[Rfam]
Nucleotides: 076
Base pairs, nucleotide, nucleotide: 001076002075003074004073005072006071007070011068012067013066014065018063019062020061021060022059023058024057027056028055030053031052032051034049035048037046038045039044
Number, partner (000 for none) and nucleotide at each position: 001076g002075a003074g004073u005072a006071u007070c008000a009000u010000u011068u012067u013066g014065g015000u016000a017000c018063u019062c020061a021060a022059a023058a024057a025000g026000u027056u028055u029000c030053a031052g032051a033000u034049u035048u036000u037046g038045g039044a040000g041000c042000a043000u044039u045038u046037c047000u048035g049034a050000u051032u052031c053030u054000a055028g056027a057024u058023u059022u060021u061020u062019g063018g064000a065014u066013c067012a068011g069000g070007g071006a072005u073004a074003c075002u076001c
This 76-nucleotide RNA from Colobus angolensis belongs to the Rfam family "mir-1290 microRNA precursor family". Rfam 15.1 lists 68 matches to the family in 28 species. It scores 82 bits against the family's covariance model.